[Rfam]
RNA sequence: CGCCCGGCACGGACCCGUGGGGGGAUCCGUAUCCGGGGCUUGAAAGCGCCCCGCACCGGA
Numbered sequence: 001c002g003c004c005c006g007g008c009a010c011g012g013a014c015c016c017g018u019g020g021g022g023g024g025a026u027c028c029g030u031a032u033c034c035g036g037g038g039c040u041u042g043a044a045a046g047c048g049c050c051c052c053g054c055a056c057c058g059g060a
Stems, first nucleotide, its partner, number of pairs: 001058002003037005009030005014024003042049001

Streptomyces RNA 2736: a 60-nucleotide sequence from Wenjunlia tyrosinilytica. On this family, see Vockenhuber et al., RNA Biol 2011: "Deep sequencing-based identification of small non-coding RNAs in Streptomyces coelicolor". The organism belongs to Wenjunlia, within Bacteria. Rfam classes the family as a small RNA. Pairs were carried over by alignment from the consensus structure.